[Rfam]
Record summary:
A member of the RNA family "caulobacter sRNA CC2171" from Brevundimonas sp. BAL3, 201 nucleotides long. NCBI's taxonomy places the organism under Bacteria, Pseudomonadati, Caulobacterales, Caulobacteraceae, Brevundimonas.
RNA sequence: AGUCGAAAGGAGGUGAUCCAGUGUCUCAUUGUCAUCAAUCGCGUGCGGUGGCCGCGACCCUGGUCCUCGGAGAGGUCCGGGCCUGACCUUUUGGUUGGCGCUAACGCCCGUCGGGCUGUUUUGGCGCUGUUCAGGCUGAGUGUUGUGGUCCGGCCGUUCGCGGUCAGACAAUGAAGGGCCGUCGCGGCGACGCGGCGGCCC
Numbered sequence: 001a002g003u004c005g006a007a008a009g010g011a012g013g014u015g016a017u018c019c020a021g022u023g024u025c026u027c028a029u030u031g032u033c034a035u036c037a038a039u040c041g042c043g044u045g046c047g048g049u050g051g052c053c054g055c056g057a058c059c060c061u062g063g064u065c066c067u068c069g070g071a072g073a074g075g076u077c078c079g080g081g082c083c084u085g086a087c088c089u090u091u092u093g094g095u096u097g098g099c100g101c102u103a104a105c106g107c108c109c110g111u112c113g114g115g116c117u118g119u120u121u122u123g124g125c126g127c128u129g130u131u132c133a134g135g136c137u138g139a140g141u142g143u144u145g146u147g148g149u150c151c152g153g154c155c156g157u158u159c160g161c162g163g164u165c166a167g168a169c170a171a172u173g174a175a176g177g178g179c180c181g182u183c184g185c186g187g188c189g190a191c192g193c194g195g196c197g198g199c200c201c
Stems, first nucleotide, its partner, number of pairs: 012019002027173007041060001043058002045055004062076001064074001078100002080096001083094004108163003176201011